[Rfam]
RNA sequence: UUAAAUGCUAUGAAAAGGAAGAGUACUUAAAAUAACCCUUGUAGAGAGUGAAAGUUUGGUGAAAUUUCACAGGUGGAAUCUUAAGGAAAAUCGCCUUGGAGUAGAUUGCUGAAAUUUUAGUAAGUAUAUCCGUAAUCCUGCGUUAAAGGAUAGAACAUGUUUGUGUUUGAGAAAGUUACACUAUUUUUAUAGGUGGUAUAGCGAAGAUAGACUUCGUCCUAUUU
Numbered sequence: 001u002u003a004a005a006u007g008c009u010a011u012g013a014a015a016a017g018g019a020a021g022a023g024u025a026c027u028u029a030a031a032a033u034a035a036c037c038c039u040u041g042u043a044g045a046g047a048g049u050g051a052a053a054g055u056u057u058g059g060u061g062a063a064a065u066u067u068c069a070c071a072g073g074u075g076g077a078a079u080c081u082u083a084a085g086g087a088a089a090a091u092c093g094c095c096u097u098g099g100a101g102u103a104g105a106u107u108g109c110u111g112a113a114a115u116u117u118u119a120g121u122a123a124g125u126a127u128a129u130c131c132g133u134a135a136u137c138c139u140g141c142g143u144u145a146a147a148g149g150a151u152a153g154a155a156c157a158u159g160u161u162u163g164u165g166u167u168u169g170a171g172a173a174a175g176u177u178a179c180a181c182u183a184u185u186u187u188u189a190u191a192g193g194u195g196g197u198a199u200a201g202c203g204a205a206g207a208u209a210g211a212c213u214u215c216g217u218c219c220u221a222u223u224u
Base pairs, nucleotide, nucleotide: 007102008101015097016096017095018094026085027084028083029082030081037073038072039071048070049069050068051067052066053065105129106128107126108125109124110123131142132141133140172188173187174186175185177183178182190221191220192219193218201217202216203215204214205213

Shown here is a 224-nucleotide RNA sequence from Clostridium tetani, a member of the family "T-box leader".
It is annotated as a cis-regulatory leader.
The family's consensus secondary structure is taken from published work.
A reference for the family is Grundy et al. (1994), "Interaction between the acceptor end of tRNA and the T box stimulates antitermination in the Bacillus subtilis tyrS gene: a new role for the discriminator base", J Bacteriol.
Rfam describes the family as follows. Uncharged tRNA acts as the effector for transcription antitermination of genes in the T-box leader family. T-boxes are found upstream of many aminoacyl-tRNA synthetase genes and some amino acid biosynthetic genes usually in Gram-positive bacteria.
Lineage of the source: Bacteria > Bacillota > Clostridia > Eubacteriales > Clostridium tetani.